[Rfam]
RNA sequence: UCUAUCGCGAGGUGGAAUCUGAAGGAAGCCGAAGGCAAAACGCUGGCCUGACGAACAGGAAUCGCAUAAUAGGCUUAUAUGCCGGGUAAGGAGGCCAUCAUCUCUAAAGCCCGAUACUUAACCGGAAGGCAUAUAGGUAUAUGCGGCAGGUAUAAGCGUGAAGGUAAAUGCG
Numbered sequence: 001u002c003u004a005u006c007g008c009g010a011g012g013u014g015g016a017a018u019c020u021g022a023a024g025g026a027a028g029c030c031g032a033a034g035g036c037a038a039a040a041c042g043c044u045g046g047c048c049u050g051a052c053g054a055a056c057a058g059g060a061a062u063c064g065c066a067u068a069a070u071a072g073g074c075u076u077a078u079a080u081g082c083c084g085g086g087u088a089a090g091g092a093g094g095c096c097a098u099c100a101u102c103u104c105u106a107a108a109g110c111c112c113g114a115u116a117c118u119u120a121a122c123c124g125g126a127a128g129g130c131a132u133a134u135a136g137g138u139a140u141a142u143g144c145g146g147c148a149g150g151u152a153u154a155a156g157c158g159u160g161a162a163g164g165u166a167a168a169u170g171c172g
Stems, first nucleotide, its partner, number of pairs: 001016006030170002035165002040159005046151005062146006073138003077134007084112004090105004